The family of this 218-nucleotide RNA sequence from Nonomuraea cypriaca is "Actinobacteria sRNA Ms_IGR-5". The pairing is the family consensus, mapped onto this sequence.
RNA sequence: ACGCGGAAAGGAGGUGGUCCGAAUAAUGGAUAGUCAUAGACGGGCUAGCGAGGUGGUUGUCCGCUGACGUCGCGGACUGUUGUCUCGUGACGUUUUCUGCGAAAUACGAGGCAACCACCGGGGCCCCUGGCAGCCGGAGGGGCGGGAUCCGAUCCCGUCCGUUGGUCCAUCCGGCCCGCCUGCUCGGCAGGCGGAGUGUUGCCCGGGGCCCUCUUCAU
Numbered sequence: 001a002c003g004c005g006g007a008a009a010g011g012a013g014g015u016g017g018u019c020c021g022a023a024u025a026a027u028g029g030a031u032a033g034u035c036a037u038a039g040a041c042g043g044g045c046u047a048g049c050g051a052g053g054u055g056g057u058u059g060u061c062c063g064c065u066g067a068c069g070u071c072g073c074g075g076a077c078u079g080u081u082g083u084c085u086c087g088u089g090a091c092g093u094u095u096u097c098u099g100c101g102a103a104a105u106a107c108g109a110g111g112c113a114a115c116c117a118c119c120g121g122g123g124c125c126c127c128u129g130g131c132a133g134c135c136g137g138a139g140g141g142g143c144g145g146g147a148u149c150c151g152a153u154c155c156c157g158u159c160c161g162u163u164g165g166u167c168c169a170u171c172c173g174g175c176c177c178g179c180c181u182g183c184u185c186g187g188c189a190g191g192c193g194g195a196g197u198g199u200u201g202c203c204c205g206g207g208g209c210c211c212u213c214u215u216c217a218u
Stems, first nucleotide, its partner, number of pairs: 013061006062101003066097001067093004072088003120212008129203004136192001